[Rfam]
RNA sequence: AAGACAGCCAACUGAUUUGGUUAUCUGAAUGUGUAUUUGCAGAGAUCUAGAAAAAGCUGGCAAUAGUAAGGCCAUGUUGUGCGCCUUAAGGAAAGCUACAUAGUCAUUAAGGUCCCCAAGAAUGGCAAUAAUA
Numbered sequence: 001a002a003g004a005c006a007g008c009c010a011a012c013u014g015a016u017u018u019g020g021u022u023a024u025c026u027g028a029a030u031g032u033g034u035a036u037u038u039g040c041a042g043a044g045a046u047c048u049a050g051a052a053a054a055a056g057c058u059g060g061c062a063a064u065a066g067u068a069a070g071g072c073c074a075u076g077u078u079g080u081g082c083g084c085c086u087u088a089a090g091g092a093a094a095g096c097u098a099c100a101u102a103g104u105c106a107u108u109a110a111g112g113u114c115c116c117c118a119a120g121a122a123u124g125g126c127a128a129u130a131a132u133a
Stems, first nucleotide, its partner, number of pairs: 003061001005059003016043004071126004083113007091105002

A member of the RNA family "Small nucleolar RNA SNORA33" from Nannospalax galili, 133 nucleotides long. It scores 100 bits against the family's covariance model. The family's RNA type in Rfam is H/ACA-box small nucleolar RNA. Rfam's curators write: ACA33 is a member of the H/ACA class of snoRNA that guide the sites of modification of uridines to pseudouridines. Rfam 15.1 lists 1,176 matches to the family in 522 species. Pairs were carried over by alignment from the consensus structure, which was predicted with PFOLD. Rfam links the family to the GO terms nucleolus and RNA processing.